A member of the RNA family "S-element" from Methylocystis echinoides, 67 nucleotides long. For this family Rfam cites "Two discrete elements are required for the replication of a repABC plasmid: an antisense RNA and a stem-loop structure" (Venkova-Canova et al., Mol Microbiol, 2004). Pairs were carried over by alignment from the consensus structure, which is taken from published work. Rfam classes the family as a cis-regulatory element. The match comes from Rfam's covariance-model search (57 bits). Taxonomically the source falls in Methylocystis (Bacteria, Pseudomonadota, Alphaproteobacteria, Hyphomicrobiales). Rfam describes the family as follows. This family represents a group of S-elements from p42d and related plasmids. The S-element has multiple functions and is believed to act as a negative regulator of repC transcription, be required for efficient replication and act as a translational enhancer of repC.
RNA sequence: AGUCAAGAGUUUUGGCGCCUAUUUCGGCGAGCGGAUUUCUUUUGCCUGAACGAGGCAAAGGAUCAUG
Numbered sequence: 001a002g003u004c005a006a007g008a009g010u011u012u013u014g015g016c017g018c019c020u021a022u023u024u025c026g027g028c029g030a031g032c033g034g035a036u037u038u039c040u041u042u043u044g045c046c047u048g049a050a051c052g053a054g055g056c057a058a059a060g061g062a063u064c065a066u067g
Base pairs, nucleotide, nucleotide: 009063010062011061012059013058017056018055019054023053024052029047031045032044033043034042035041